[Rfam]
RNA sequence: UAAUCGCGUCGCGACUGGCGUCGGUGGAGCGGGAUCGCACCACUCAAGAUGGUUACCAUCGGGGAGCGACCGACACGGAUUCGACCGCACGCCUGGGCCGAUACG
Numbered sequence: 001u002a003a004u005c006g007c008g009u010c011g012c013g014a015c016u017g018g019c020g021u022c023g024g025u026g027g028a029g030c031g032g033g034a035u036c037g038c039a040c041c042a043c044u045c046a047a048g049a050u051g052g053u054u055a056c057c058a059u060c061g062g063g064g065a066g067c068g069a070c071c072g073a074c075a076c077g078g079a080u081u082c083g084a085c086c087g088c089a090c091g092c093c094u095g096g097g098c099c100g101a102u103a104c105g
Base pairs, nucleotide, nucleotide: 004073005072006071008070009069010068011067012066015063016062017093018092019091020090021089049059050058051057052056082100083099085097086096